[Rfam]
RNA sequence: CCCCAGGUUUCCCAGUGCAGCCCCUGGAUGAGCCCCUAGUAUUUUCCUUAUAAGCUUGGGCCCCAAGGCUGGCGGCGAUGCCGACCCAGAGCCUAAAACUAUUAUAAAGGUUAGGCGAAGUGGGGCCAGGGAAUGAG
Numbered sequence: 001c002c003c004c005a006g007g008u009u010u011c012c013c014a015g016u017g018c019a020g021c022c023c024c025u026g027g028a029u030g031a032g033c034c035c036c037u038a039g040u041a042u043u044u045u046c047c048u049u050a051u052a053a054g055c056u057u058g059g060g061c062c063c064c065a066a067g068g069c070u071g072g073c074g075g076c077g078a079u080g081c082c083g084a085c086c087c088a089g090a091g092c093c094u095a096a097a098a099c100u101a102u103u104a105u106a107a108a109g110g111u112u113a114g115g116c117g118a119a120g121u122g123g124g125g126c127c128a129g130g131g132a133a134u135g136a137g
Base pairs, nucleotide, nucleotide: 001137003135005134009133010132011131012130013129020126021125022124023123024122056096057095058094059093060092061091063089068085070083071082072081073080074079